[Rfam]
RNA: U11 spliceosomal RNA
RNA sequence: AAAAAAGGUCAGUUGGCUCUAUAUGCGAUGCAUGGAUUAGCCCAUGCACUAUAUGGACAUCAAUACAUAUGGCUGACAACAUUUAUGAACCAUUCAAUAGGGUUGGCGCGCAUUGCCGACCCUUUUG
Numbered sequence: 001a002a003a004a005a006a007g008g009u010c011a012g013u014u015g016g017c018u019c020u021a022u023a024u025g026c027g028a029u030g031c032a033u034g035g036a037u038u039a040g041c042c043c044a045u046g047c048a049c050u051a052u053a054u055g056g057a058c059a060u061c062a063a064u065a066c067a068u069a070u071g072g073c074u075g076a077c078a079a080c081a082u083u084u085a086u087g088a089a090c091c092a093u094u095c096a097a098u099a100g101g102g103u104u105g106g107c108g109c110g111c112a113u114u115g116c117c118g119a120c121c122c123u124u125u126u127g
Base pairs, nucleotide, nucleotide: 008077009076010075011074012073014028016026017025029048030047031046032045033044034043035042049072050071051070052069053068054067055066096125097124101121102120103119104118105117106116107115108114
Dot-bracket structure: .......(((((.(.((.......)).)(((((((......)))))))(((((((..........))))))))))))..................((...((((((((.....))))))))..))..